[Rfam]
RNA: S-element
Organism: Brucella anthropi
RNA sequence: UGUCAAGAGUCGUAAGCGUCUUUUUGGCGGGUGGAUUUCUUUUGCCUUUUGAAAGGUGAGAGGGAAUG
Numbered sequence: 001u002g003u004c005a006a007g008a009g010u011c012g013u014a015a016g017c018g019u020c021u022u023u024u025u026g027g028c029g030g031g032u033g034g035a036u037u038u039c040u041u042u043u044g045c046c047u048u049u050u051g052a053a054a055g056g057u058g059a060g061a062g063g064g065a066a067u068g
Stems, first nucleotide, its partner, number of pairs: 010063002013060001017058004022054006029047001031045005